[Rfam]
RNA sequence: UUUCUUUCAAAACAAGCAGAUCUGUGUCUGGCGAUCCCGUCCAGUCCUUUUUUCCUUCUUCGGAAGGAAAAAAAAGGCUGUGCUCUGGUUGAUUGCCAGGCAGUUCGACGACAAUGGAGCCAUCAUACAACUGAUGUCAAUUUCCUGUCGACAGAUCUGAGAUUGAUGAGCAGCUUCCGGUACCUUUUCCUGAUCUUGAGCUCCCUUUGCCUGGCAUUGGUGAGCUCGGUUGGGAAGCCGGAUUGCUGCCGGCGUCAUAUUCCCACUCCCUUUACCGAUCUUUUUUUUGGCCGUUGGCUGAUGAGGAUGGGGAAAAACCAUGACAGCCAACAUAC
Numbered sequence: 001u002u003u004c005u006u007u008c009a010a011a012a013c014a015a016g017c018a019g020a021u022c023u024g025u026g027u028c029u030g031g032c033g034a035u036c037c038c039g040u041c042c043a044g045u046c047c048u049u050u051u052u053u054c055c056u057u058c059u060u061c062g063g064a065a066g067g068a069a070a071a072a073a074a075a076g077g078c079u080g081u082g083c084u085c086u087g088g089u090u091g092a093u094u095g096c097c098a099g100g101c102a103g104u105u106c107g108a109c110g111a112c113a114a115u116g117g118a119g120c121c122a123u124c125a126u127a128c129a130a131c132u133g134a135u136g137u138c139a140a141u142u143u144c145c146u147g148u149c150g151a152c153a154g155a156u157c158u159g160a161g162a163u164u165g166a167u168g169a170g171c172a173g174c175u176u177c178c179g180g181u182a183c184c185u186u187u188u189c190c191u192g193a194u195c196u197u198g199a200g201c202u203c204c205c206u207u208u209g210c211c212u213g214g215c216a217u218u219g220g221u222g223a224g225c226u227c228g229g230u231u232g233g234g235a236a237g238c239c240g241g242a243u244u245g246c247u248g249c250c251g252g253c254g255u256c257a258u259a260u261u262c263c264c265a266c267u268c269c270c271u272u273u274a275c276c277g278a279u280c281u282u283u284u285u286u287u288u289g290g291c292c293g294u295u296g297g298c299u300g301a302u303g304a305g306g307a308u309g310g311g312g313a314a315a316a317a318c319c320a321u322g323a324c325a326g327c328c329a330a331c332a333u334a335c
Stems, first nucleotide, its partner, number of pairs: 018158008026101006033094004037088003042082002044079001046077004051072003055066004109150005115139003119135001121133001170246003176242005192231004198227006204220002251328003254324005267313005275306002289299004
RNA: A. fumigatus sRNA Afu_309
Organism: Talaromyces islandicus